Notes: This 81-nucleotide sequence from Micromonospora sp. KC723 belongs to the Rfam family "ZMP/ZTP riboswitch aptamer (pfl RNA motif)". The base pairs follow the family's consensus structure, which is taken from published work. A search with the family's covariance model found it, with a score of 43 bits. The family has 185 seed sequences and 3,295 matches in Rfam 15.1.
[Rfam]
RNA sequence: GGGGUGGAACGCGACUGGCGGCACGGGGAUGGGUCACCAUCGGGGAGCUCGUCGCGGGGGUCGACCGCCUGGGCCUCCGUG
Dot-bracket structure: ..(((((...((..(([[[[[.......((((....))))..))..)))))))....(((((..]]]]]..))))).....